[Rfam]
RNA sequence: CGGAUAGAGUUGACUUAACUCGGCUGCAUUCAUCCGGUCGGUCUAGCGGUCCAAUGGUUUUGACUUCCUCGAAGAGGGCGAAGCCGUCGGCAACUGUUGGGCAUUUGAUCGGUGUAUUUGCGGCUGGUAUGCGCUGAGAGCUUUGCGAUCGCGUGUUGACAAACGUGCAGUGGACCAUUCCUUCCGGGCGUGGAAACCUUCGCGCUUUGAGACAUGUCGGUUGUAAGGUUUUGAAGAUGGCGUCUCCGCUAUGGUGCGUCAGCUUUUUCGGGCUGUUGUGGCUGCUGGAUGGUCGCAUGCGACUAUCUGCAGUCAUCGAUGAUGCGACAUGAGUGUGGACGCGGCGAGGCGUUGAUCUCGGUGCGAACGUCGACCACCUAUCCGACCCGUCUUGAAACACAGUCUAGCAUAUGCGCGAGUCAUUGGGUGAUAAACCUAAAGGCGUAAUGAAAGUAAGUCUCCCCGAUGCGACCGAUAUGGGAUCCAUGCGGUUUUUGAAGCCGUACGGCGCACCAUAGCCCCGUUCCCGUUGCUUGCAAUAGGGCGGAGGUAGAGCGCAUACGGUGGUA
Numbered sequence: 001c002g003g004a005u006a007g008a009g010u011u012g013a014c015u016u017a018a019c020u021c022g023g024c025u026g027c028a029u030u031c032a033u034c035c036g037g038u039c040g041g042u043c044u045a046g047c048g049g050u051c052c053a054a055u056g057g058u059u060u061u062g063a064c065u066u067c068c069u070c071g072a073a074g075a076g077g078g079c080g081a082a083g084c085c086g087u088c089g090g091c092a093a094c095u096g097u098u099g100g101g102c103a104u105u106u107g108a109u110c111g112g113u114g115u116a117u118u119u120g121c122g123g124c125u126g127g128u129a130u131g132c133g134c135u136g137a138g139a140g141c142u143u144u145g146c147g148a149u150c151g152c153g154u155g156u157u158g159a160c161a162a163a164c165g166u167g168c169a170g171u172g173g174a175c176c177a178u179u180c181c182u183u184c185c186g187g188g189c190g191u192g193g194a195a196a197c198c199u200u201c202g203c204g205c206u207u208u209g210a211g212a213c214a215u216g217u218c219g220g221u222u223g224u225a226a227g228g229u230u231u232u233g234a235a236g237a238u239g240g241c242g243u244c245u246c247c248g249c250u251a252u253g254g255u256g257c258g259u260c261a262g263c264u265u266u267u268u269c270g271g272g273c274u275g276u277u278g279u280g281g282c283u284g285c286u287g288g289a290u291g292g293u294c295g296c297a298u299g300c301g302a303c304u305a306u307c308u309g310c311a312g313u314c315a316u317c318g319a320u321g322a323u324g325c326g327a328c329a330u331g332a333g334u335g336u337g338g339a340c341g342c343g344g345c346g347a348g349g350c351g352u353u354g355a356u357c358u359c360g361g362u363g364c365g366a367a368c369g370u371c372g373a374c375c376a377c378c379u380a381u382c383c384g385a386c387c388c389g390u391c392u393u394g395a396a397a398c399a400c401a402g403u404c405u406a407g408c409a410u411a412u413g414c415g416c417g418a419g420u421c422a423u424u425g426g427g428u429g430a431u432a433a434a435c436c437u438a439a440a441g442g443c444g445u446a447a448u449g450a451a452a453g454u455a456a457g458u459c460u461c462c463c464c465g466a467u468g469c470g471a472c473c474g475a476u477a478u479g480g481g482a483u484c485c486a487u488g489c490g491g492u493u494u495u496u497g498a499a500g501c502c503g504u505a506c507g508g509c510g511c512a513c514c515a516u517a518g519c520c521c522c523g524u525u526c527c528c529g530u531u532g533c534u535u536g537c538a539a540u541a542g543g544g545c546g547g548a549g550g551u552a553g554a555g556c557g558c559a560u561a562c563g564g565u566g567g568u569a
Stems, first nucleotide, its partner, number of pairs: 001384007009374004017128001020127009132363007387402001389400002404567003408563001410561007419443003424438005447454002476517005484508002519550002521547003525544003531538002
RNA: Eukaryotic large subunit ribosomal RNA, nucleotides 427 to 995